Rfam assigns this 115-nucleotide RNA sequence from Desulfofarcimen acetoxidans to the family "Group II catalytic intron D1-D4-2".
For this family Rfam cites "The ins and outs of group II introns" (Bonen and Vogel, Trends Genet, 2001).
Rfam's curators write: Group II introns are found in rRNA, tRNA and mRNA of organelles in fungi, plants and protists, and also in mRNA in bacteria.

RNA sequence: GAGGGGAGGCCCCUCGAACUCGGUAUUCAGGUGCAGAGUUCAAACAACCUUAAGCUGCUGUGUUCAAAAGGCAUGGUGGUGAGCGUUAAGGAAAAGGCCGGAAUUACCGGUCAUG
Numbered sequence: 001g002a003g004g005g006g007a008g009g010c011c012c013c014u015c016g017a018a019c020u021c022g023g024u025a026u027u028c029a030g031g032u033g034c035a036g037a038g039u040u041c042a043a044a045c046a047a048c049c050u051u052a053a054g055c056u057g058c059u060g061u062g063u064u065c066a067a068a069a070g071g072c073a074u075g076g077u078g079g080u081g082a083g084c085g086u087u088a089a090g091g092a093a094a095a096g097g098c099c100g101g102a103a104u105u106a107c108c109g110g111u112c113a114u115g
Stems, first nucleotide, its partner, number of pairs: 001015005016041006023034004045115002048091006054080002057077003061073004096112006